[Rfam]
RNA: Small nucleolar RNA SNORD77
RNA sequence: AUGCUAUGAUGGUUGCAUAGUUCAGCAGAUUGGAUCAUGAAGGGAUUUAUCAUUUGUCUGAUGGAUCA
Numbered sequence: 001a002u003g004c005u006a007u008g009a010u011g012g013u014u015g016c017a018u019a020g021u022u023c024a025g026c027a028g029a030u031u032g033g034a035u036c037a038u039g040a041a042g043g044g045a046u047u048u049a050u051c052a053u054u055u056g057u058c059u060g061a062u063g064g065a066u067c068a
Base pairs, nucleotide, nucleotide: 001066002065004063006038007037008036009035010034013028014027015026016025043055044054045053046052
Dot-bracket structure: ((.(.(((((..((((........)))).....)))))....((((.....)))).......).))..